Annotation:
A member of the RNA family "mir-4857 microRNA precursor family" from Branchiostoma belcheri, 78 nucleotides long. The base pairs follow the family's consensus structure, which was predicted with RNAalifold.
RNA sequence: CUGUGAUCACGAUGUUUUUGUCUGCUCCAGAGGUGAGUUCGCACGACUCUGGGUCAGACGAAACAUCUCAGAUCAACG
Numbered sequence: 001c002u003g004u005g006a007u008c009a010c011g012a013u014g015u016u017u018u019u020g021u022c023u024g025c026u027c028c029a030g031a032g033g034u035g036a037g038u039u040c041g042c043a044c045g046a047c048u049c050u051g052g053g054u055c056a057g058a059c060g061a062a063a064c065a066u067c068u069c070a071g072a073u074c075a076a077c078g
Stems, first nucleotide, its partner, number of pairs: 002078003005074004011067008020059005026053007033044003
Rfam links the family to the GO terms miRNA-mediated post-transcriptional gene silencing and RISC complex. The organism belongs to Branchiostoma, within Eukaryota.